RNA sequence: CUUCACCGGAGGGAGAGCGGGCUGGAAGCGAGGUUACUGUGAAUUGCUGUGUGGUGUUGUGUGUGGUGUGUGUGGGGGGUGGGGGGCGGCGCGUGUAAGCCGAGUGUGUGAGUGGAUGCGUGAAUGUGUGAGUGGAUGAGCUAAUGUGUGAGUGCGUGUGCCUGUCCCUGCGCCCCCUCCCCCCGCCUACACGUUGCUCUUAUUUGAUCAGGUUGUGACUCCAGCCCCGCCGGGCCGACCCGAAAUGAAAAGCUUCCUUCCUGCGAAGCCCUUCCUCGGGGCGCUGUGCAACGCUGUGGCCCCGGAGGUUCUGGAGCCGGUCCUAUGGGGCCCGGCACUCAGAAGUGAUGAAUUGAUCAGAUAGACGAGGCCAGUCUUGUCCCGCGCCAUUGAUUAUCGAGGCGAUUCUGAUCUGA
Numbered sequence: 001c002u003u004c005a006c007c008g009g010a011g012g013g014a015g016a017g018c019g020g021g022c023u024g025g026a027a028g029c030g031a032g033g034u035u036a037c038u039g040u041g042a043a044u045u046g047c048u049g050u051g052u053g054g055u056g057u058u059g060u061g062u063g064u065g066g067u068g069u070g071u072g073u074g075g076g077g078g079g080u081g082g083g084g085g086g087c088g089g090c091g092c093g094u095g096u097a098a099g100c101c102g103a104g105u106g107u108g109u110g111a112g113u114g115g116a117u118g119c120g121u122g123a124a125u126g127u128g129u130g131a132g133u134g135g136a137u138g139a140g141c142u143a144a145u146g147u148g149u150g151a152g153u154g155c156g157u158g159u160g161c162c163u164g165u166c167c168c169u170g171c172g173c174c175c176c177c178u179c180c181c182c183c184c185g186c187c188u189a190c191a192c193g194u195u196g197c198u199c200u201u202a203u204u205u206g207a208u209c210a211g212g213u214u215g216u217g218a219c220u221c222c223a224g225c226c227c228c229g230c231c232g233g234g235c236c237g238a239c240c241c242g243a244a245a246u247g248a249a250a251a252g253c254u255u256c257c258u259u260c261c262u263g264c265g266a267a268g269c270c271c272u273u274c275c276u277c278g279g280g281g282c283g284c285u286g287u288g289c290a291a292c293g294c295u296g297u298g299g300c301c302c303c304g305g306a307g308g309u310u311c312u313g314g315a316g317c318c319g320g321u322c323c324u325a326u327g328g329g330g331c332c333c334g335g336c337a338c339u340c341a342g343a344a345g346u347g348a349u350g351a352a353u354u355g356a357u358c359a360g361a362u363a364g365a366c367g368a369g370g371c372c373a374g375u376c377u378u379g380u381c382c383c384g385c386g387c388c389a390u391u392g393a394u395u396a397u398c399g400a401g402g403c404g405a406u407u408c409u410g411a412u413c414u415g416a
Base pairs, nucleotide, nucleotide: 053174054173055172056171057170058095059094060093061092062091063090114129116127117126118125132161133160134159137156138155140153141152203251204250205249208243209242211240213238214237215236217235220234221233222232224230225229274308275307276306277305279303280302281301283300284299285298288297289296316336317335318334319333320332321330322329323328340415341414342413343412350408351407352406353405354404355403369388370387371386374383
A member of the RNA family "Small Cajal body-specific RNA 2" from Muntiacus reevesi, 416 nucleotides long. Rfam 15.1 lists 612 matches to the family in 498 species. Gene Ontology terms of the family: RNA processing and nucleolus. The literature on the family includes a 2004 paper in Curr Biol by Tycowski et al., "Guide RNAs with 5' caps and novel box C/D snoRNA-like domains for modification of snRNAs in metazoa".